[Rfam]
RNA sequence: CUCCUGCACAAGGGGGAGUAGUCUCUCGCCGAAAGGCGAGACGGUCGUCAACAUAAUUGGUGCAAAAUCACCAUGGUGGCCGUGACCAGGGUUGUCUUUGUCGAGACACCGUUGGUUU
Numbered sequence: 001c002u003c004c005u006g007c008a009c010a011a012g013g014g015g016g017a018g019u020a021g022u023c024u025c026u027c028g029c030c031g032a033a034a035g036g037c038g039a040g041a042c043g044g045u046c047g048u049c050a051a052c053a054u055a056a057u058u059g060g061u062g063c064a065a066a067a068u069c070a071c072c073a074u075g076g077u078g079g080c081c082g083u084g085a086c087c088a089g090g091g092u093u094g095u096c097u098u099u100g101u102c103g104a105g106a107c108a109c110c111g112u113u114g115g116u117u118u
Stems, first nucleotide, its partner, number of pairs: 026039003041083010058073005
Manganese Mn2+ riboswitch aptamer (yybP-ykoY): a 118-nucleotide sequence from Oceanisphaera arctica. Pairs were carried over by alignment from the consensus structure.